RNA sequence: GAUAUGGCAUGAAAGGAUCUUUAGUUCGAAGGAAUCAACCGCGAGGUUGUAGUACGAGUUCUAAUGCCGAUGUCAUAUCAUACGUUUUGAAGAACGG
Numbered sequence: 001g002a003u004a005u006g007g008c009a010u011g012a013a014a015g016g017a018u019c020u021u022u023a024g025u026u027c028g029a030a031g032g033a034a035u036c037a038a039c040c041g042c043g044a045g046g047u048u049g050u051a052g053u054a055c056g057a058g059u060u061c062u063a064a065u066g067c068c069g070a071u072g073u074c075a076u077a078u079c080a081u082a083c084g085u086u087u088u089g090a091a092g093a094a095c096g097g
Stems, first nucleotide, its partner, number of pairs: 001079010015068002021064004027058001031055001036049005083096003
Dot-bracket structure: ((((((((((....((....((((..(...(....(((((....))))).....)..)..))))..)).))))))))))...(((........))).
RNA: Archaeal large subunit ribosomal RNA, nucleotides 559 to 655
Organism: Methanococcoides burtonii